RNA sequence: GGACCUUUAGCUCAGGUGGUUAGAGCUCCCCGCUCAUAACGGGGCGGUCGUAGGUUCGAGUCCUACAAGGUCCA
Numbered sequence: 001g002g003a004c005c006u007u008u009a010g011c012u013c014a015g016g017u018g019g020u021u022a023g024a025g026c027u028c029c030c031c032g033c034u035c036a037u038a039a040c041g042g043g044g045c046g047g048u049c050g051u052a053g054g055u056u057c058g059a060g061u062c063c064u065a066c067a068a069g070g071u072c073c074a
Stems, first nucleotide, its partner, number of pairs: 001073007010026004028044005050066005
RNA: tRNA
Organism: Facklamia hominis